The record is a 69-nucleotide RNA sequence from Flavobacteriaceae bacterium PRS1, which matches "Flavo-1 RNA" in Rfam. Rfam 15.1 lists 7,497 matches to the family in 411 species. The family's consensus secondary structure is taken from published work. It is annotated as a small RNA.
RNA sequence: AUUUUGCGUUAAGGAUAAAAACGGAAUCCUUUUGCAAAGCAAAAGAUAUAGUGGAUAGCCUGACUCUAC
Numbered sequence: 001a002u003u004u005u006g007c008g009u010u011a012a013g014g015a016u017a018a019a020a021a022c023g024g025a026a027u028c029c030u031u032u033u034g035c036a037a038a039g040c041a042a043a044a045g046a047u048a049u050a051g052u053g054g055a056u057a058g059c060c061u062g063a064c065u066c067u068a069c
Stems, first nucleotide, its partner, number of pairs: 012061003016057002021052002026047003032042004